Rfam assigns this 216-nucleotide sequence from Tistrella mobilis to the family "permuted transfer-messenger RNA". Pairs were carried over by alignment from the consensus structure, which is taken from published work. By type it is a non-coding RNA gene. Bacterial tmRNA, also known as 10Sa RNA or SsrA, is named for its dual tRNA and mRNA-like properties. The organism belongs to Tistrella mobilis, within Bacteria.
RNA sequence: GGCGAUACAGGGCCUCACGGAAUAAACGUAUCGGACCCGGGGGCAGUGCCCGGCGCCUCCACCAGUUCAGAUCACCGGCCUUCGGGCCGGUGCUCCAUGGGGGCGAGCCAGGAUCGACGUGCGUGGUAAAGGUUUGGUCUUCGCCCGGCAUGAUACCGCCGUUAUCGGGUCACUCAAACAGGUGCGAACGACAACCGUGUCGCCCUCGCUGCCUAA
Numbered sequence: 001g002g003c004g005a006u007a008c009a010g011g012g013c014c015u016c017a018c019g020g021a022a023u024a025a026a027c028g029u030a031u032c033g034g035a036c037c038c039g040g041g042g043g044c045a046g047u048g049c050c051c052g053g054c055g056c057c058u059c060c061a062c063c064a065g066u067u068c069a070g071a072u073c074a075c076c077g078g079c080c081u082u083c084g085g086g087c088c089g090g091u092g093c094u095c096c097a098u099g100g101g102g103g104c105g106a107g108c109c110a111g112g113a114u115c116g117a118c119g120u121g122c123g124u125g126g127u128a129a130a131g132g133u134u135u136g137g138u139c140u141u142c143g144c145c146c147g148g149c150a151u152g153a154u155a156c157c158g159c160c161g162u163u164a165u166c167g168g169g170u171c172a173c174u175c176a177a178a179c180a181g182g183u184g185c186g187a188a189c190g191a192c193a194a195c196c197g198u199g200u201c202g203c204c205c206u207c208g209c210u211g212c213c214u215a216a
Base pairs, nucleotide, nucleotide: 001145002144003143004142005141017133018132027123028122029121032119033118037053038052039051040050041049054105055104056103057102058101059100060099146161147160148159149158